[Rfam]
RNA sequence: CCCAUCGAUGAUGAUGAGAUGGUACACUUCAUUCUUACUGGGUUAGAUUUUGAUUAUAACCCCUUUGUAUCUUCAGUUCUUGGUCGUGUUGGAUCAAUCUCCUUGAGUGAUUUGUACUCCGAGCUACUUUCCUACGAUC
Numbered sequence: 001c002c003c004a005u006c007g008a009u010g011a012u013g014a015u016g017a018g019a020u021g022g023u024a025c026a027c028u029u030c031a032u033u034c035u036u037a038c039u040g041g042g043u044u045a046g047a048u049u050u051u052g053a054u055u056a057u058a059a060c061c062c063c064u065u066u067g068u069a070u071c072u073u074c075a076g077u078u079c080u081u082g083g084u085c086g087u088g089u090u091g092g093a094u095c096a097a098u099c100u101c102c103u104u105g106a107g108u109g110a111u112u113u114g115u116a117c118u119c120c121g122a123g124c125u126a127c128u129u130u131c132c133u134a135c136g137a138u139c
Stems, first nucleotide, its partner, number of pairs: 004138004088108003092104002
RNA: Small nucleolar RNA Z247